RNA: TPP riboswitch aptamer (THI element)
Organism: Nonomuraea cypriaca
RNA sequence: GGCGGCGACGCGGGGUGCCUGGAAGGCCGGGCUGAGAUCACACCCGUCGAACCUGAUCUAGUUCGGACUAGCGAAGGGACGUCAUCGUUGAGCGGU
Numbered sequence: 001g002g003c004g005g006c007g008a009c010g011c012g013g014g015g016u017g018c019c020u021g022g023a024a025g026g027c028c029g030g031g032c033u034g035a036g037a038u039c040a041c042a043c044c045c046g047u048c049g050a051a052c053c054u055g056a057u058c059u060a061g062u063u064c065g066g067a068c069u070a071g072c073g074a075a076g077g078g079a080c081g082u083c084a085u086c087g088u089u090g091a092g093c094g095g096u
Base pairs, nucleotide, nucleotide: 007083008082009081010080011046012045013044014043016040017032018031019030020029021028052077053076054075058071059070060069061068